RNA: Small nucleolar RNA snoR2/U65
RNA sequence: GGCCCCAUGGUCUUUCUCUGAUGCAUUGACCAAGGGAUCUAUAAUUGGGCUAAGAAUCAGUUUUCACUCAUUGAUCGGAACCUGGAACUUCAUUUUGUUAGUCUGGAGAGCCUAUUAUUGUGAUUAAAUUG
Numbered sequence: 001g002g003c004c005c006c007a008u009g010g011u012c013u014u015u016c017u018c019u020g021a022u023g024c025a026u027u028g029a030c031c032a033a034g035g036g037a038u039c040u041a042u043a044a045u046u047g048g049g050c051u052a053a054g055a056a057u058c059a060g061u062u063u064u065c066a067c068u069c070a071u072u073g074a075u076c077g078g079a080a081c082c083u084g085g086a087a088c089u090u091c092a093u094u095u096u097g098u099u100a101g102u103c104u105g106g107a108g109a110g111c112c113u114a115u116u117a118u119u120g121u122g123a124u125u126a127a128a129u130u131g
Base pairs, nucleotide, nucleotide: 002050003049004048005047007045008044009042014037015036016035017034020031022029064123065122066121067120077112078111082108083107085104087102088101089100